[Rfam]
RNA sequence: GGGGGCGUAGUUCAGUUUUGGUUAGAACGCCGGCCUGUCAAGCCGGAGGUCGCGGGUUCAAGUCCCGUCGCUCCCG
Dot-bracket structure: (((((((..((((...........)))).(((((.......))))).....(((((.......)))))))))))).
The family of this 76-nucleotide RNA from Salinispira pacifica is "tRNA". By type it is a transfer RNA. Its family is annotated with triplet codon-amino acid adaptor activity in the Gene Ontology.